The record is a 39-nucleotide RNA sequence from Lysinibacillus sp. BF-4, which matches "Ribosomal protein L19 leader" in Rfam. It is annotated as a cis-regulatory leader. From the family's description: This family is a putative r-protein leader autoregulatory structure found in B. subtilis and other low-GC Gram-positive bacteria. It is located in the 5' untranslated regions of mRNAs encoding ribosomal protein L19 (rplS). On this family, see Zengel and Lindahl, Prog Nucleic Acid Res Mol Biol 1994: "Diverse mechanisms for regulating ribosomal protein synthesis in Escherichia coli".

[Rfam]
RNA sequence: ACGAUGUUCCGCUGCAAUUCAGUAUUGUAAGAGCGUCUG
Numbered sequence: 001a002c003g004a005u006g007u008u009c010c011g012c013u014g015c016a017a018u019u020c021a022g023u024a025u026u027g028u029a030a031g032a033g034c035g036u037c038u039g
Stems, first nucleotide, its partner, number of pairs: 003037007013029006